RNA: Selenocysteine insertion sequence 1
Organism: Mytilus coruscus
RNA sequence: CGUAUAUGUUAUGAUGGUAUGAUACUAAAUCCCUAACGGGAGGUAUUAUGCUUGAUUUUCAUAUG
Numbered sequence: 001c002g003u004a005u006a007u008g009u010u011a012u013g014a015u016g017g018u019a020u021g022a023u024a025c026u027a028a029a030u031c032c033c034u035a036a037c038g039g040g041a042g043g044u045a046u047u048a049u050g051c052u053u054g055a056u057u058u059u060c061a062u063a064u065g
Base pairs, nucleotide, nucleotide: 001065002064003063004062005061016052017051018050019049020048021047022046023045024044025043031040032039033038